SAM riboswitch aptamer (S box leader): a 107-nucleotide sequence from Compostibacillus humi. A search with the family's covariance model found it, with a score of 99 bits.

RNA sequence: CUCUUAUAAAGAGAGGUGGAGGGACCUGGCCCAGUGAAGCCUCGGCAACCAUUGAUGUCAAAUCAAACGGUGCCAAAUCCAGCAGAUGUACAUCUGAAAUAUAAGAG
Numbered sequence: 001c002u003c004u005u006a007u008a009a010a011g012a013g014a015g016g017u018g019g020a021g022g023g024a025c026c027u028g029g030c031c032c033a034g035u036g037a038a039g040c041c042u043c044g045g046c047a048a049c050c051a052u053u054g055a056u057g058u059c060a061a062a063u064c065a066a067a068c069g070g071u072g073c074c075a076a077a078u079c080c081a082g083c084a085g086a087u088g089u090a091c092a093u094c095u096g097a098a099a100u101a102u103a104a105g106a107g
Stems, first nucleotide, its partner, number of pairs: 001107008013043005021032003026082004044074004049070002052066004078099001083096005